Shown here is a 182-nucleotide RNA from Enterobacter sp. 638, a member of the family "sok antitoxin (CssrC)". A search with the family's covariance model found it, with a score of 85 bits. The family's RNA type in Rfam is antitoxin RNA. NCBI's taxonomy places the organism under Bacteria, Pseudomonadota, Enterobacterales, Enterobacteriaceae, Enterobacter. Rfam's curators write: Also identified in Shigella as CssrC.
RNA sequence: UGGCGCUUGAGGCUUUUUGCCUCAUGAUGUUCGGGUGGUUUGUUAUCGUGUUGUGAGGCAGAAAGAAGAAAGCCCCGUAGGAAGUUAAUUUACAUUAACCAACCACACGAGGCUUAAUCUACAUGCUAGACACAUCUAGAUUAGCCGCUUACUGCGCUUUGCGCAAGGAGAAGAAGGCUAUG
Numbered sequence: 001u002g003g004c005g006c007u008u009g010a011g012g013c014u015u016u017u018u019g020c021c022u023c024a025u026g027a028u029g030u031u032c033g034g035g036u037g038g039u040u041u042g043u044u045a046u047c048g049u050g051u052u053g054u055g056a057g058g059c060a061g062a063a064a065g066a067a068g069a070a071a072g073c074c075c076c077g078u079a080g081g082a083a084g085u086u087a088a089u090u091u092a093c094a095u096u097a098a099c100c101a102a103c104c105a106c107a108c109g110a111g112g113c114u115u116a117a118u119c120u121a122c123a124u125g126c127u128a129g130a131c132a133c134a135u136c137u138a139g140a141u142u143a144g145c146c147g148c149u150u151a152c153u154g155c156g157c158u159u160u161g162c163g164c165a166a167g168g169a170g171a172a173g174a175a176g177g178c179u180a181u182g
Base pairs, nucleotide, nucleotide: 002075003074005073006072007071008070013065014064015063016062017061018060019059020058021057022056023055026052027051028050029049030048077108078107081103084100086098109148111146112145113144116142117141118140119139120138121137123135124134152177153176